[Rfam]
The record is a 72-nucleotide RNA from Amycolatopsis sp. YIM 10, which matches "ASpks TB sRNA" in Rfam. NCBI's taxonomy places the organism under Bacteria, Bacillati, Actinomycetota, Pseudonocardiaceae, Amycolatopsis. By type it is an antisense RNA. Rfam 15.1 lists 9,052 matches to the family in 683 species.

RNA sequence: CUUCACCGAGCCCAAGUACAGCGGCUUCUCACCACGCGACUUCCCGUAGGUGGCCAGCAGUGCCUGUGCCUC
Numbered sequence: 001c002u003u004c005a006c007c008g009a010g011c012c013c014a015a016g017u018a019c020a021g022c023g024g025c026u027u028c029u030c031a032c033c034a035c036g037c038g039a040c041u042u043c044c045c046g047u048a049g050g051u052g053g054c055c056a057g058c059a060g061u062g063c064c065u066g067u068g069c070c071u072c
Stems, first nucleotide, its partner, number of pairs: 014026001017023001028068001030066001035062002040057002044053003
It scores 57 bits against the family's covariance model.